This 116-nucleotide RNA from Promicromonospora sukumoe belongs to the Rfam family "SAM riboswitch aptamer (S box leader)". The source organism's lineage runs through Bacteria, Bacillati, Micrococcales, Promicromonosporaceae and Promicromonospora. The base pairs follow the family's consensus structure, which is taken from published work.

RNA sequence: AUCCCAUCCAGAGCGGUCGAGAGUCCUGGCUCCGUGACACCGCAGCAACCUGCCGACUUCCUGCCUCGUGGCCGUGGCGUGAGGACGUAAGGUGCUCACGCCAGGUUCGAUGGAGC
Numbered sequence: 001a002u003c004c005c006a007u008c009c010a011g012a013g014c015g016g017u018c019g020a021g022a023g024u025c026c027u028g029g030c031u032c033c034g035u036g037a038c039a040c041c042g043c044a045g046c047a048a049c050c051u052g053c054c055g056a057c058u059u060c061c062u063g064c065c066u067c068g069u070g071g072c073c074g075u076g077g078c079g080u081g082a083g084g085a086c087g088u089a090a091g092g093u094g095c096u097c098a099c100g101c102c103a104g105g106u107u108c109g110a111u112g113g114a115g116c
Stems, first nucleotide, its partner, number of pairs: 002115001004113005013043005021032003026104004044096004049092002051089003100108001